RNA sequence: GGGGACGGAUAGGCCCUGGUGGGUCUCACGGACUUCAACUCCGUUGUCGGGUGGCUCGACCAUCCGAGGUGGGUUCAAUUCCUACACGCUCCC
Numbered sequence: 001g002g003g004g005a006c007g008g009a010u011a012g013g014c015c016c017u018g019g020u021g022g023g024u025c026u027c028a029c030g031g032a033c034u035u036c037a038a039c040u041c042c043g044u045u046g047u048c049g050g051g052u053g054g055c056u057c058g059a060c061c062a063u064c065c066g067a068g069g070u071g072g073g074u075u076c077a078a079u080u081c082c083u084a085c086a087c088g089c090u091c092c093c
Base pairs, nucleotide, nucleotide: 001093002092003091004090006088007087008085011026012025013024014023015022016021028044029043030042031041032040047067048066049065050064051063070084071083072082073081